Source information
Rfam assigns this 82-nucleotide RNA sequence from Leptobrachium leishanense to the family "mir-1805 microRNA precursor family". The organism belongs to Leptobrachium, within Eukaryota.
RNA sequence: GGAAUGCCUUGGGAGUUGUAGUCUUUCAAACAGCUGUGAAUUUUGAUACCUGUAUUGGAACACUACAGCUCCUAAAACUUUC
Numbered sequence: 001g002g003a004a005u006g007c008c009u010u011g012g013g014a015g016u017u018g019u020a021g022u023c024u025u026u027c028a029a030a031c032a033g034c035u036g037u038g039a040a041u042u043u044u045g046a047u048a049c050c051u052g053u054a055u056u057g058g059a060a061c062a063c064u065a066c067a068g069c070u071c072c073u074a075a076a077a078c079u080u081u082c
Stems, first nucleotide, its partner, number of pairs: 001082004009075001012072011024060006030053004